Record summary
Rfam assigns this 66-nucleotide RNA sequence from Lysinibacillus composti to the family "Bacillaceae-1 RNA". Lineage of the source: Bacteria > Bacillati > Bacilli > Caryophanales > Lysinibacillus. The base pairs follow the family's consensus structure, which is taken from published work. The family's RNA type in Rfam is small RNA.
RNA sequence: UUUAGCUCCGCGACGGCAAAAACGCGACGUCCUAUCGCAUUGCCGUCAUGACUCACAUCGUGUGAG
Numbered sequence: 001u002u003u004a005g006c007u008c009c010g011c012g013a014c015g016g017c018a019a020a021a022a023c024g025c026g027a028c029g030u031c032c033u034a035u036c037g038c039a040u041u042g043c044c045g046u047c048a049u050g051a052c053u054c055a056c057a058u059c060g061u062g063u064g065a066g
Base pairs, nucleotide, nucleotide: 012047013046014045015044016043017042024038025037026036027035052066053065054064055063056062